mir-8517 microRNA precursor family: a 103-nucleotide sequence from Plutella xylostella.
The organism belongs to Plutella, within Eukaryota.
RNA sequence: UUACAGAACGUUUUAACUAAUAAACUGUCCCUCUCCGACAAAGAAUAAUUUGUUUUUUGACAAAGAGGGACAAAACAGUUUAUUAGUUAAAACGAAUUGUAAC
Numbered sequence: 001u002u003a004c005a006g007a008a009c010g011u012u013u014u015a016a017c018u019a020a021u022a023a024a025c026u027g028u029c030c031c032u033c034u035c036c037g038a039c040a041a042a043g044a045a046u047a048a049u050u051u052g053u054u055u056u057u058u059g060a061c062a063a064a065g066a067g068g069g070a071c072a073a074a075a076c077a078g079u080u081u082a083u084u085a086g087u088u089a090a091a092a093c094g095a096a097u098u099g100u101a102a103c
Stems, first nucleotide, its partner, number of pairs: 001102006011092018029059001044054004